[Rfam]
RNA sequence: GAUUUAUUAAUGUUGUUGAAAUAGUAAUCUAACUUAGUACGAGAGGAACCGUUAGAUCAGCUAAUUGGUAUAUAAUGUUAUUGGAAACAAUAAUGCAUUGAAUCUACCAGCUGCAGAAUUAUGACUGAACGCAUCUAAGUCAGUAUUCUGUCUAGUAAUAUCAACAAUAAAUUUUUGCCUUAACAUGUUUUUAGGCAAUUUUAUAUCUUUUUUAAAGAUAGUUUAAGCCUUGCGUUAUGAUUUAUUAAAUAUUUUAAAAUAAAUAUUUAAUAAUAAUAUCGUAUCAUUGAUAUUAUUUCAUGUCAAGGUAAUAGUGAGCUUGUAUACGACUAGCUAGCUGGACCAGGGGGUGUAAGUAGUAGAGCAGGUCUUUCCUGCGAUCUAUUGAGCCUUAUCCUUGUGUUUGGUGUCACUGU
Numbered sequence: 001g002a003u004u005u006a007u008u009a010a011u012g013u014u015g016u017u018g019a020a021a022u023a024g025u026a027a028u029c030u031a032a033c034u035u036a037g038u039a040c041g042a043g044a045g046g047a048a049c050c051g052u053u054a055g056a057u058c059a060g061c062u063a064a065u066u067g068g069u070a071u072a073u074a075a076u077g078u079u080a081u082u083g084g085a086a087a088c089a090a091u092a093a094u095g096c097a098u099u100g101a102a103u104c105u106a107c108c109a110g111c112u113g114c115a116g117a118a119u120u121a122u123g124a125c126u127g128a129a130c131g132c133a134u135c136u137a138a139g140u141c142a143g144u145a146u147u148c149u150g151u152c153u154a155g156u157a158a159u160a161u162c163a164a165c166a167a168u169a170a171a172u173u174u175u176u177g178c179c180u181u182a183a184c185a186u187g188u189u190u191u192u193a194g195g196c197a198a199u200u201u202u203a204u205a206u207c208u209u210u211u212u213u214a215a216a217g218a219u220a221g222u223u224u225a226a227g228c229c230u231u232g233c234g235u236u237a238u239g240a241u242u243u244a245u246u247a248a249a250u251a252u253u254u255u256a257a258a259a260u261a262a263a264u265a266u267u268u269a270a271u272a273a274u275a276a277u278a279u280c281g282u283a284u285c286a287u288u289g290a291u292a293u294u295a296u297u298u299c300a301u302g303u304c305a306a307g308g309u310a311a312u313a314g315u316g317a318g319c320u321u322g323u324a325u326a327c328g329a330c331u332a333g334c335u336a337g338c339u340g341g342a343c344c345a346g347g348g349g350g351u352g353u354a355a356g357u358a359g360u361a362g363a364g365c366a367g368g369u370c371u372u373u374c375c376u377g378c379g380a381u382c383u384a385u386u387g388a389g390c391c392u393u394a395u396c397c398u399u400g401u402g403u404u405u406g407g408u409g410u411c412a413c414u415g416u
Stems, first nucleotide, its partner, number of pairs: 012168008022154003027057007058113005066106003073100005078093006115149003122142005177309005183303004313414005318334003322330001339406005345398003349391002356385004361381001364378005
Dot-bracket structure: ...........((((((((..(((..(((((((.................)))))))(((((...(((....(((((((((((....))))))..)))))...)))..))))).(((....(((((...........)))))....)))..)))......))))))))........(((((.((((.................................................................................................................)))).)))))...((((((((.(.......).)))....(((((.(((.((.....((((.(..(((((.....)))))..)))))....))....)))...)))))...)))))..

About this RNA:
A member of the RNA family "Eukaryotic large subunit ribosomal RNA" from Strongyloides ratti, 416 nucleotides of a longer RNA. A reference for the family is Yusupov et al. (2001), "Crystal structure of the ribosome at 5.5 A resolution", Science.